The family of this 87-nucleotide RNA from Cellulomonas carbonis is "ZMP/ZTP riboswitch aptamer (pfl RNA motif)".

[Rfam]
RNA sequence: UGUCCGGGUCGCGACUGGCGAACAGGUGGGUCACCACCAGGGAGCGGCAGCACAGCAGACUUCGGGUCGUACGCCUGGGCCGCGGGU
Numbered sequence: 001u002g003u004c005c006g007g008g009u010c011g012c013g014a015c016u017g018g019c020g021a022a023c024a025g026g027u028g029g030g031u032c033a034c035c036a037c038c039a040g041g042g043a044g045c046g047g048c049a050g051c052a053c054a055g056c057a058g059a060c061u062u063c064g065g066g067u068c069g070u071a072c073g074c075c076u077g078g079g080c081c082g083c084g085g086g087u
Base pairs, nucleotide, nucleotide: 003052005050008048009047010046011045012044015041016040017075018074019073020072026037027036028035029034065081066080067079068078
It scores 51 bits against the family's covariance model. The family's consensus secondary structure is taken from published work. Its family is annotated with regulation of purine nucleotide biosynthetic process and one-carbon metabolic process in the Gene Ontology.